Small Cajal body specific RNA 3: a 135-nucleotide sequence from Nyctiprogne leucopyga. The organism belongs to Nyctiprogne, within Eukaryota. Rfam 15.1 lists 642 matches to the family in 535 species. The match comes from Rfam's covariance-model search (93 bits). Rfam classes the family as a small Cajal body RNA. scaRNAs are a specific class of small nuclear RNAs which localise to the Cajal bodies and guide the modification of RNA polymerase II transcribed spliceosomal RNAs U1, U2, U4, U5 and U12. Clan: SCARNA3 clan. Rfam links the family to the GO terms RNA processing, Cajal body and nucleolus.
RNA sequence: GCUGGGACCAGUCGGGACCAGUCAUGGGCAAGAUAAAUGUGUUUUGUCCACCAUUGCAGUCUUCCUAGAGUAAAGUGCAGGUCUCUGUCUGCUUUAGGAGAGCCAACUAAACCAGAUCGUUCCCCUCCAUACACA
Numbered sequence: 001g002c003u004g005g006g007a008c009c010a011g012u013c014g015g016g017a018c019c020a021g022u023c024a025u026g027g028g029c030a031a032g033a034u035a036a037a038u039g040u041g042u043u044u045u046g047u048c049c050a051c052c053a054u055u056g057c058a059g060u061c062u063u064c065c066u067a068g069a070g071u072a073a074a075g076u077g078c079a080g081g082u083c084u085c086u087g088u089c090u091g092c093u094u095u096a097g098g099a100g101a102g103c104c105a106a107c108u109a110a111a112c113c114a115g116a117u118c119g120u121u122c123c124c125c126u127c128c129a130u131a132c133a134c135a
Stems, first nucleotide, its partner, number of pairs: 004065003009059001011057002025050005032043003077128001079126003085119001087117003091113001093111005